[Rfam]
RNA sequence: GGGUUCCUUUUUCCUAUGCAUAUACUUCUUUGAAAUGUGGUUCUAAAGAGGCAUAAGGCAUGGGAAAAUGGGGCGA
Numbered sequence: 001g002g003g004u005u006c007c008u009u010u011u012u013c014c015u016a017u018g019c020a021u022a023u024a025c026u027u028c029u030u031u032g033a034a035a036u037g038u039g040g041u042u043c044u045a046a047a048g049a050g051g052c053a054u055a056a057g058g059c060a061u062g063g064g065a066a067a068a069u070g071g072g073g074c075g076a
Stems, first nucleotide, its partner, number of pairs: 010067010021055003025051008